[Rfam]
Rfam assigns this 344-nucleotide RNA from Lutispora thermophila to the family "Bacterial RNase P class A". The organism belongs to Lutispora thermophila, within Bacteria. The base pairs follow the family's consensus structure, which is taken from published work. Rfam describes the family as follows. Ribonuclease P (RNase P) is a ubiquitous endoribonuclease, found in archaea, bacteria and eukarya as well as chloroplasts and mitochondria. Its best characterised activity is the generation of mature 5'-ends of tRNAs by cleaving the 5'-leader elements of precursor-tRNAs. Cellular RNase Ps are ribonucleoproteins. RNA from bacterial RNase Ps retains its catalytic activity in the absence of the protein subunit, i.e. it is a ribozyme. Isolated eukaryotic and archaeal RNase P RNA has not been shown to retain its catalytic function, but is still essential for the catalytic activity of the holoenzyme. Although the archaeal and eukaryotic holoenzyme s have a much greater protein content than the bacterial ones, the RNA cores from all the three lineages are homologous -- helices corresponding to P1, P2, P3, P4, and P10/11 are common to all cellular RNase P RNAs. Yet, there is considerable sequence variation, particularly among the eukaryotic RNAs. Identified in Yersinia as Ysr151/RnpB.
RNA sequence: UGAGUAAAUCGGAUGGUCGCGUGUAUAUUUUAUAUGCAUGAGGAAAGUCCGGGCUCCACAGGGCAGGGUGCCGGGUAAUACCCGGUGAAGGCGACUUCAAGGAAAGUGCAACAGAGAUAUACCGCCAUAUUUUAUAUGGUAAGGGUGGAAAGGUGAGGUAAGAGCUCACCAGCGAUUAGGCGACUAAUCGGCUAUGUAAACCCCAUCUGGAGCAAGAUCAAAUAGGGAAGCAUUUGGGGUGGCCCGCCUCGCUUCCGGGUAAGAUCGCUAGAGUCUGUUGGUAACAGCAGAUCGAGAUAGAUGACCGUCUAAGACAGAACCCGGCUUAUAGAUUUACUCGUUUA
Dot-bracket structure: ((((((((((((((((((.(((((((((...)))))))))....[[[.[[[[[((((...[[[[.((((((((((.....)))))(((((....)))).)((...(((((...........(((((((((...)))))))..)).......((((((.......)))))).((((((((....))))))).)..)))..)))))))))))))...((((......((((((....(((((.]]]])))))))))))......))))......((((((((....))))))))..........)))))))..........]]]]]]]].).))))))))))....